[Rfam]
RNA sequence: UGAAAACACCCAUAACUGGGGUGGUGCCCCAACCGGGGGCUACUUUACCAUACUCAGCGUUC
Numbered sequence: 001u002g003a004a005a006a007c008a009c010c011c012a013u014a015a016c017u018g019g020g021g022u023g024g025u026g027c028c029c030c031a032a033c034c035g036g037g038g039g040c041u042a043c044u045u046u047a048c049c050a051u052a053c054u055c056a057g058c059g060u061u062c
Base pairs, nucleotide, nucleotide: 018046019045020044021043022042023041024040025039027037028036

Shown here is a 62-nucleotide RNA sequence from Planktothricoides sp. SR001, a member of the family "Plastid-psbN 5UTR RNA". Pairs were carried over by alignment from the consensus structure, which was predicted with LocARNA. Plastid psbN is a non-coding RNA (ncRNA) recognised in plastids. It was reported as a conserved 11 stem-loop in the prime untranslated region (5UTR) of psbN genes. It has been reported that the motif is retained in a subset of mature transcripts in barley, which can suggests a possible role in transcript alternative 5 prime processing. It is annotated as a cis-regulatory element. NCBI's taxonomy places the organism under Bacteria, Bacillati, Oscillatoriophycideae, Oscillatoriales, Planktothricoides.